[Rfam]
Shown here is a 64-nucleotide sequence from Trifolium subterraneum, a member of the family "MIR5291 microRNA precursor family". Lineage of the source: Eukaryota > Streptophyta > Hologalegina > Trifolieae > Trifolium.
RNA sequence: GAUGGAUCCAAUCCAAUCCAUUAACUAAUUUUUUUACAAUUGGAUGGAUUGGAUGGAUCCAUUA
Numbered sequence: 001g002a003u004g005g006a007u008c009c010a011a012u013c014c015a016a017u018c019c020a021u022u023a024a025c026u027a028a029u030u031u032u033u034u035u036a037c038a039a040u041u042g043g044a045u046g047g048a049u050u051g052g053a054u055g056g057a058u059c060c061a062u063u064a
Base pairs, nucleotide, nucleotide: 004060005059006058007057008056011054012053013052014051015050016049017048018047019046020045021044022043026038029036